This 107-nucleotide sequence from Nyctereutes procyonoides belongs to the Rfam family "mir-8834 microRNA precursor family".

[Rfam]
RNA sequence: AGGAGGAACAAUAACAGUGGCAGAGGUCAGCUCUAGAGCUCUGGAUUCAGCUCCCGCAGUAACUACAGAGCUCUCAGCCUGCAGGGGCCUGGAUGCUCCGGGAGCGG
Numbered sequence: 001a002g003g004a005g006g007a008a009c010a011a012u013a014a015c016a017g018u019g020g021c022a023g024a025g026g027u028c029a030g031c032u033c034u035a036g037a038g039c040u041c042u043g044g045a046u047u048c049a050g051c052u053c054c055c056g057c058a059g060u061a062a063c064u065a066c067a068g069a070g071c072u073c074u075c076a077g078c079c080u081g082c083a084g085g086g087g088c089c090u091g092g093a094u095g096c097u098c099c100g101g102g103a104g105c106g107g
Stems, first nucleotide, its partner, number of pairs: 002099004007094001009091002012087001019079003023075003029072006037064001041059003
The family's consensus secondary structure was predicted with RNAalifold. Its family is annotated with RISC complex and miRNA-mediated post-transcriptional gene silencing in the Gene Ontology.